[Rfam]
RNA: Eukaryotic large subunit ribosomal RNA, nucleotides 1 to 433
RNA sequence: AGACCUCCAAUCAGACGAGGUUACCCGCUGAACUUAAGCAUAUUAUUAAGCGGAGGAAAAGAAACCAACUGGAAUUCCCAUAGUAGCGGCGAGCGAAGUGGGAGUAGCCCAAUUUGAAAAUCCUUUUUCUUUUUGAAAAGGAGAUGUAUAUUUCAAUGUUUUCUAGUAUUUGCAUGAAAGAAAAAGCAAAAUUCCUGGAAUGGAAUAUCAUGGAGGGUGAUAAUCCCGUUUAUCUUUUCCACUGUCAUGCGUUACGAUACUAGAAACGGCAGAGUCGGGUUGUUUGGUAGUACAGCCUUAAUGAAUUGGGUGUUAUAUAUCAUCCAAGGCUAAAUAUGAAAGAGAGACCGAUAGCGAACAAGUACCGUGAGGGAAAGAUGAAAAGGACUUUGAAAAGAGAGUGCAAUAGUACUUGAAACCGUUGAGAGGGAAG
Numbered sequence: 001a002g003a004c005c006u007c008c009a010a011u012c013a014g015a016c017g018a019g020g021u022u023a024c025c026c027g028c029u030g031a032a033c034u035u036a037a038g039c040a041u042a043u044u045a046u047u048a049a050g051c052g053g054a055g056g057a058a059a060a061g062a063a064a065c066c067a068a069c070u071g072g073a074a075u076u077c078c079c080a081u082a083g084u085a086g087c088g089g090c091g092a093g094c095g096a097a098g099u100g101g102g103a104g105u106a107g108c109c110c111a112a113u114u115u116g117a118a119a120a121u122c123c124u125u126u127u128u129c130u131u132u133u134u135g136a137a138a139a140g141g142a143g144a145u146g147u148a149u150a151u152u153u154c155a156a157u158g159u160u161u162u163c164u165a166g167u168a169u170u171u172g173c174a175u176g177a178a179a180g181a182a183a184a185a186g187c188a189a190a191a192u193u194c195c196u197g198g199a200a201u202g203g204a205a206u207a208u209c210a211u212g213g214a215g216g217g218u219g220a221u222a223a224u225c226c227c228g229u230u231u232a233u234c235u236u237u238u239c240c241a242c243u244g245u246c247a248u249g250c251g252u253u254a255c256g257a258u259a260c261u262a263g264a265a266a267c268g269g270c271a272g273a274g275u276c277g278g279g280u281u282g283u284u285u286g287g288u289a290g291u292a293c294a295g296c297c298u299u300a301a302u303g304a305a306u307u308g309g310g311u312g313u314u315a316u317a318u319a320u321c322a323u324c325c326a327a328g329g330c331u332a333a334a335u336a337u338g339a340a341a342g343a344g345a346g347a348c349c350g351a352u353a354g355c356g357a358a359c360a361a362g363u364a365c366c367g368u369g370a371g372g373g374a375a376a377g378a379u380g381a382a383a384a385g386g387a388c389u390u391u392g393a394a395a396a397g398a399g400a401g402u403g404c405a406a407u408a409g410u411a412c413u414u415g416a417a418a419c420c421g422u423u424g425a426g427a428g429g430g431a432a433g
Stems, first nucleotide, its partner, number of pairs: 024055001025053005035042002065072002076103005086094002106331004112151002115148002118145001121142007157268002159265004165261004172250005180240001182238005190206001192205004209213001216226002277298007308325005365372002388399004